[Rfam]
RNA sequence: GCCAGCCAUGCGGGAGAACCGGCCAAGCGCCGGUGCCGAAGGAGCAACCGCCCCGGAAACUCUCAGGCCCAAGGGACCGCAGGCUGACG
Number, nucleotide and partner (000 for none) at each position: 001g000002c000003c000004a000005g000006c000007c083008a000009u081010g080011c079012g078013g077014g000015a000016g000017a000018a000019c033020c032021g031022g030023c000024c000025a000026a000027g000028c000029g000030c022031c021032g020033g019034u000035g068036c067037c066038g064039a063040a000041g000042g062043a061044g060045c000046a000047a000048c056049c055050g000051c000052c000053c000054c000055g049056g048057a000058a000059a000060c044061u043062c042063u039064c038065a000066g037067g036068c035069c000070c000071a000072a000073g000074g000075g000076a000077c013078c012079g011080c010081a009082g000083g007084c000085u000086g000087a000088c000089g000

Glycine riboswitch aptamer: an 89-nucleotide RNA from Pseudooceanicola lipolyticus.
The base pairs follow the family's consensus structure.
Lineage of the source: Bacteria > Pseudomonadati > Pseudomonadota > Rhodobacterales > Pseudooceanicola.